[Rfam]
RNA sequence: ACCCUCCAGUUCCCUUUCCUCUCAGAUCUGAAUGUUCGUCUUGGUGGCCAUAAAGGAGGAAACAACACUGACGCUGGCCUCACAGCCUGCUACUCUGGCAUGUGGGCUAGUUUCAAAUUGGA
Numbered sequence: 001a002c003c004c005u006c007c008a009g010u011u012c013c014c015u016u017u018c019c020u021c022u023c024a025g026a027u028c029u030g031a032a033u034g035u036u037c038g039u040c041u042u043g044g045u046g047g048c049c050a051u052a053a054a055g056g057a058g059g060a061a062a063c064a065a066c067a068c069u070g071a072c073g074c075u076g077g078c079c080u081c082a083c084a085g086c087c088u089g090c091u092a093c094u095c096u097g098g099c100a101u102g103u104g105g106g107c108u109a110g111u112u113u114c115a116a117a118u119u120g121g122a
Stems, first nucleotide, its partner, number of pairs: 003059005019047002022044002025040003074110007091098001
This 122-nucleotide sequence from Cavia porcellus belongs to the Rfam family "Small nucleolar RNA SNORA61". Rfam 15.1 lists 881 matches to the family in 421 species. The organism belongs to Cavia, within Eukaryota. Pairs were carried over by alignment from the consensus structure, which was predicted with PFOLD. The family's RNA type in Rfam is H/ACA-box small nucleolar RNA. Rfam describes the family as follows. ACA61 is a member of the H/ACA class of snoRNA that guide the sites of modification of uridines to pseudouridines. Rfam links the family to the GO terms RNA processing and nucleolus.